[Rfam]
RNA sequence: AACAACAGUGAUGAUUCAUACAGACCUGUAAUGAUUUGCGAGCAUGAUCGCAAGCAAUAAUGAACAUCUAAGGGACUGAGUUGUU
Dot-bracket structure: .(((((.........................................................................))))).